[Rfam]
Background
The record is a 130-nucleotide RNA sequence from Castor canadensis, which matches "Small nucleolar RNA SNORA51" in Rfam. It scores 84 bits against the family's covariance model. The family's consensus secondary structure was predicted with PFOLD. It is annotated as an H/ACA-box small nucleolar RNA. Rfam 15.1 lists 2,121 matches to the family in 210 species. About the family: ACA51 is a member of the H/ACA class of snoRNA that guide the sites of modification of uridines to pseudouridines. Lineage of the source: Eukaryota > Eumetazoa > Vertebrata > Euarchontoglires > Castor.

RNA sequence: GGCCUCCUGGUGCUUACCACAAGCGUGCACUGACUGUAUAAAAAGAGGACUACAUAGAUAUAUUACUACCCUACGUACACCUCAGCCUAGGCCUUGUGCCUGGUCUGUACUGUGAAUGGGGAAGACAUGG
Number, nucleotide and partner (000 for none) at each position: 001g000002g053003c000004c000005u049006c048007c047008u046009g000010g000011u000012g000013c000014u000015u000016a000017c000018c000019a000020c036021a035022a000023g000024c000025g030026u000027g000028c000029a000030c025031u000032g000033a000034c000035u021036g020037u000038a000039u000040a000041a000042a000043a000044a000045g000046a008047g007048g006049a005050c000051u000052a000053c002054a000055u000056a000057g000058a000059u000060a000061u000062a000063u000064u000065a000066c000067u000068a000069c121070c120071c119072u118073a117074c000075g000076u000077a000078c000079a000080c000081c000082u000083c107084a106085g105086c000087c103088u102089a101090g100091g099092c098093c000094u000095u000096g000097u000098g092099c091100c090101u089102g088103g087104u000105c085106u084107g083108u000109a000110c000111u000112g000113u000114g000115a000116a000117u073118g072119g071120g070121g069122a000123a000124g000125a000126c000127a000128u000129g000130g000